[Rfam]
RNA sequence: CUUGACGGAGCCCAGCAGCAGCGGCUGUCCGUCGGCGCGGUCCUGGCCAUAGGUGGCGAGCAGCGCCUGGGCCUC
Numbered sequence: 001c002u003u004g005a006c007g008g009a010g011c012c013c014a015g016c017a018g019c020a021g022c023g024g025c026u027g028u029c030c031g032u033c034g035g036c037g038c039g040g041u042c043c044u045g046g047c048c049a050u051a052g053g054u055g056g057c058g059a060g061c062a063g064c065g066c067c068u069g070g071g072c073c074u075c
Stems, first nucleotide, its partner, number of pairs: 014026003032070002038065002043060002047056003
About this RNA:
A member of the RNA family "ASpks TB sRNA" from Streptomyces sp. Mg1, 75 nucleotides long. Pairs were carried over by alignment from the consensus structure, which is taken from published work. By type it is an antisense RNA. The source organism's lineage runs through Bacteria, Actinomycetota, Actinomycetes, Kitasatosporales and Streptomyces. The match comes from Rfam's covariance-model search (79 bits).